Small nucleolar RNA R30/Z108: a 99-nucleotide RNA from Hibiscus trionum. Rfam 15.1 lists 626 matches to the family in 219 species. Taxonomically the source falls in Hibiscus (Eukaryota, Viridiplantae, Mesangiospermae, Malvaceae). snoR30 is a C/D box small nucleolar RNA which acts as a methylation guide for 18S ribosomal RNA in plants. On this family, see Marker et al., Curr Biol 2002: "Experimental RNomics. Identification of 140 Candidates for Small Non-Messenger RNAs in the Plant Arabidopsis thaliana".
[Rfam]
RNA sequence: UGAGGUUGCGAUGAGGAGUCACAGCUCCCUCUUCCGAUUAAUGUUGAAGAAAUCAGCUGGCGGAAUCGAACCUAUUACUCCAUCGCCACUACCGAGCAA
Numbered sequence: 001u002g003a004g005g006u007u008g009c010g011a012u013g014a015g016g017a018g019u020c021a022c023a024g025c026u027c028c029c030u031c032u033u034c035c036g037a038u039u040a041a042u043g044u045u046g047a048a049g050a051a052a053u054c055a056g057c058u059g060g061c062g063g064a065a066u067c068g069a070a071c072c073u074a075u076u077a078c079u080c081c082a083u084c085g086c087c088a089c090u091a092c093c094g095a096g097c098a099a
Stems, first nucleotide, its partner, number of pairs: 006099004